A member of the RNA family "SAM riboswitch aptamer (S box leader)" from Iocasia frigidifontis, 107 nucleotides long. The match comes from Rfam's covariance-model search (85 bits). The base pairs follow the family's consensus structure, which is taken from published work. From the family's description: The SAM riboswitch is found upstream of a number of genes which code for proteins involved in methionine or cysteine biosynthesis in Gram-positive bacteria. Taxonomically the source falls in Iocasia (Bacteria, Clostridia, Halanaerobiales, Halanaerobiaceae).
RNA sequence: AACCUAUCAAGAGUGGUAGAGGGACUGGCCCGAUGAAACCCGGCAACCAGCAAUAGUUUUAAUUGUGUGGUGCUAAUUCCAGCAGGUAAAAACCUGAUAGAUAGGAA
Numbered sequence: 001a002a003c004c005u006a007u008c009a010a011g012a013g014u015g016g017u018a019g020a021g022g023g024a025c026u027g028g029c030c031c032g033a034u035g036a037a038a039c040c041c042g043g044c045a046a047c048c049a050g051c052a053a054u055a056g057u058u059u060u061a062a063u064u065g066u067g068u069g070g071u072g073c074u075a076a077u078u079c080c081a082g083c084a085g086g087u088a089a090a091a092a093c094c095u096g097a098u099a100g101a102u103a104g105g106a107a
Stems, first nucleotide, its partner, number of pairs: 003105006013041001015040003021031003025082004042074004047070002050066004078099001083096005